The record is a 172-nucleotide RNA from Cryptosporangium arvum, which matches "c-di-AMP riboswitch aptamer (ydaO/yuaA leader)" in Rfam.
The organism belongs to Cryptosporangium arvum, within Bacteria.
The match comes from Rfam's covariance-model search (63 bits).
This family represents a conserved RNA structure found upstream of the ydaO and yuaA genes in Bacillus subtilis and related genes in other bacteria. The ydaO/yuaA element is thought to act as a genetic 'off' switch for the ydaO and yuaA genes in its native state.
RNA sequence: CCCGACGAGUAGCCAAUCAAAUGGACAGGAGCGGGGGACCCACGCACGUGGGGUCGCCGGAGAACAGAUCCGGCGCGAUCCCUUGGGGUGAAGACGCGCUCAGCGCGACCGGGCACUACACCUUCCCGCCCGAACCCGACAGCUAACUCCGCAGGCGUGCAUGGAAGGACUC
Numbered sequence: 001c002c003c004g005a006c007g008a009g010u011a012g013c014c015a016a017u018c019a020a021a022u023g024g025a026c027a028g029g030a031g032c033g034g035g036g037g038a039c040c041c042a043c044g045c046a047c048g049u050g051g052g053g054u055c056g057c058c059g060g061a062g063a064a065c066a067g068a069u070c071c072g073g074c075g076c077g078a079u080c081c082c083u084u085g086g087g088g089u090g091a092a093g094a095c096g097c098g099c100u101c102a103g104c105g106c107g108a109c110c111g112g113g114c115a116c117u118a119c120a121c122c123u124u125c126c127c128g129c130c131c132g133a134a135c136c137c138g139a140c141a142g143c144u145a146a147c148u149c150c151g152c153a154g155g156c157g158u159g160c161a162u163g164g165a166a167g168g169a170c171u172c
Stems, first nucleotide, its partner, number of pairs: 001029002031152006041085002086137003095107003111131004